[Rfam]
RNA: Francisella sRNA B
RNA sequence: AAGACUAUUGAUUUAAUCAUCAUGUCAUUCUCGCGAAGGCAGGAAUCUCCUUAGUAUUUAAGAGAUCCCCGUGUUAAGCACGAGGAUGACUACUGUUUUUAUGAUACAUACU
Numbered sequence: 001a002a003g004a005c006u007a008u009u010g011a012u013u014u015a016a017u018c019a020u021c022a023u024g025u026c027a028u029u030c031u032c033g034c035g036a037a038g039g040c041a042g043g044a045a046u047c048u049c050c051u052u053a054g055u056a057u058u059u060a061a062g063a064g065a066u067c068c069c070c071g072u073g074u075u076a077a078g079c080a081c082g083a084g085g086a087u088g089a090c091u092a093c094u095g096u097u098u099u100u101a102u103g104a105u106a107c108a109u110a111c112u
Base pairs, nucleotide, nucleotide: 003026004025005024006022010018011017027046028045029044030043031042033040034039057103059101060100062099063098064097065087066086067085068084070082071081072080073079074078